Shown here is an 86-nucleotide RNA sequence from Python bivittatus, a member of the family "Small nucleolar RNA SNORD103/SNORD85". NCBI's taxonomy places the organism under Eukaryota, Gnathostomata, Sauropsida, Serpentes, Python.
[Rfam]
RNA sequence: UCUGGCUGUGAUGACACCCUUGCCCUCACUGAGAACACUGUUCAAUAAUGAGAACCUUGCUACGGACUCAGAAGAGCUGAGCUGGA
Numbered sequence: 001u002c003u004g005g006c007u008g009u010g011a012u013g014a015c016a017c018c019c020u021u022g023c024c025c026u027c028a029c030u031g032a033g034a035a036c037a038c039u040g041u042u043c044a045a046u047a048a049u050g051a052g053a054a055c056c057u058u059g060c061u062a063c064g065g066a067c068u069c070a071g072a073a074g075a076g077c078u079g080a081g082c083u084g085g086a
Stems, first nucleotide, its partner, number of pairs: 001086006